[Rfam]
RNA sequence: CGCGCGGGACGGCGUCCUGCGUGCCGGCGAAACGACCCGCCGGGACGACCCGG
Numbered sequence: 001c002g003c004g005c006g007g008g009a010c011g012g013c014g015u016c017c018u019g020c021g022u023g024c025c026g027g028c029g030a031a032a033c034g035a036c037c038c039g040c041c042g043g044g045a046c047g048a049c050c051c052g053g
Base pairs, nucleotide, nucleotide: 001023002022003021004020005019006018007017008016009015010014040053041052042051043050044049

This 53-nucleotide sequence from Halorubrum sp. JWXQ-INN 858 belongs to the Rfam family "Guanidine-II riboswitch aptamer (mini-ykkC)".
Its family is annotated with regulation of gene expression in the Gene Ontology.
Simpler in structure and has fewer highly conserved nucleotide positions than the ykkC-yxkD leader.